[Rfam]
RNA sequence: AACGACCGGUCGGACCCGUCUGCCCACGGCAUGCGAGCCCGGCCCACAAGUGGAGGCUUUCGAACUCCCACCUGAUCGUCUCUGAGGAUGACAGGUCACCGGUCAGGCGGUGCCGCUCGGCGGCGAUCCGCCCGAAAGUGCGCCCCGCGGUGACCGCGGCGGUGUUCCGGUAGUUCGAGGAGCCCCGCCUGUGAUCGUCCGGGGCAUUUUUG
Numbered sequence: 001a002a003c004g005a006c007c008g009g010u011c012g013g014a015c016c017c018g019u020c021u022g023c024c025c026a027c028g029g030c031a032u033g034c035g036a037g038c039c040c041g042g043c044c045c046a047c048a049a050g051u052g053g054a055g056g057c058u059u060u061c062g063a064a065c066u067c068c069c070a071c072c073u074g075a076u077c078g079u080c081u082c083u084g085a086g087g088a089u090g091a092c093a094g095g096u097c098a099c100c101g102g103u104c105a106g107g108c109g110g111u112g113c114c115g116c117u118c119g120g121c122g123g124c125g126a127u128c129c130g131c132c133c134g135a136a137a138g139u140g141c142g143c144c145c146c147g148c149g150g151u152g153a154c155c156g157c158g159g160c161g162g163u164g165u166u167c168c169g170g171u172a173g174u175u176c177g178a179g180g181a182g183c184c185c186c187g188c189c190u191g192u193g194a195u196c197g198u199c200c201g202g203g204g205c206a207u208u209u210u211u212g
Stems, first nucleotide, its partner, number of pairs: 004104006012040002041097004047074002050071004054066002076091006106132005112124005142205006148197003155193003158189005164183005
RNA: Streptomyces RNA 1601